[Rfam]
RNA sequence: UUAAACCACAAGGGGAGCCUUUUCGGCUGAGAUAAAACAAUUCGUUUUGACCCUUCGAACCUGUAAGAUUAUUCUUGCGUAGGGAUGUGGAUGGAAACAGAC
Numbered sequence: 001u002u003a004a005a006c007c008a009c010a011a012g013g014g015g016a017g018c019c020u021u022u023u024c025g026g027c028u029g030a031g032a033u034a035a036a037a038c039a040a041u042u043c044g045u046u047u048u049g050a051c052c053c054u055u056c057g058a059a060c061c062u063g064u065a066a067g068a069u070u071a072u073u074c075u076u077g078c079g080u081a082g083g084g085a086u087g088u089g090g091a092u093g094g095a096a097a098c099a100g101a102c
Base pairs, nucleotide, nucleotide: 006090007089008088009087010086011054012053013052014051017027018026019025034048035047036046037045038044060083061082062081063080064077065076066075067074